[Rfam]
RNA: DABA-DC-AT RNA
RNA sequence: GCAAUCUCGGUAGCUAUUCAUUUGAAUACUCUGGGGGAGACGCGUGAGCAGCAUUCUGGCUGAGUGUUCUCACGUAGGGUAGGUAUCGAUAAAUCCGUUAUCGAUAGACGGGAUACUAAUGUCGCUCAGUGACAUGUGAAUGGGAAACCCAACA
Numbered sequence: 001g002c003a004a005u006c007u008c009g010g011u012a013g014c015u016a017u018u019c020a021u022u023u024g025a026a027u028a029c030u031c032u033g034g035g036g037g038a039g040a041c042g043c044g045u046g047a048g049c050a051g052c053a054u055u056c057u058g059g060c061u062g063a064g065u066g067u068u069c070u071c072a073c074g075u076a077g078g079g080u081a082g083g084u085a086u087c088g089a090u091a092a093a094u095c096c097g098u099u100a101u102c103g104a105u106a107g108a109c110g111g112g113a114u115a116c117u118a119a120u121g122u123c124g125c126u127c128a129g130u131g132a133c134a135u136g137u138g139a140a141u142g143g144g145a146a147a148c149c150c151a152a153c154a
Stems, first nucleotide, its partner, number of pairs: 006035005042075007051067003084106009120134006